[Rfam]
RNA sequence: CGAUGAACAUGAUGAAGGAGAAAAAGAUUGGAUGAUGACCCAUGAUCUCAGAAACAUCCUUUAUUCGCUACGUUCUUUCUGAUUCAUCC
Numbered sequence: 001c002g003a004u005g006a007a008c009a010u011g012a013u014g015a016a017g018g019a020g021a022a023a024a025a026g027a028u029u030g031g032a033u034g035a036u037g038a039c040c041c042a043u044g045a046u047c048u049c050a051g052a053a054a055c056a057u058c059c060u061u062u063a064u065u066c067g068c069u070a071c072g073u074u075c076u077u078u079c080u081g082a083u084u085c086a087u088c089c
Stems, first nucleotide, its partner, number of pairs: 004086004
The record is an 89-nucleotide RNA sequence from Cucumis melo, which matches "Small nucleolar RNA R32/R81/Z41" in Rfam. Gene Ontology terms of the family: nucleolus and RNA processing. The family's RNA type in Rfam is C/D-box small nucleolar RNA. The organism belongs to Cucumis, within Eukaryota. The family's consensus secondary structure was predicted with PFOLD. A search with the family's covariance model found it, with a score of 50 bits.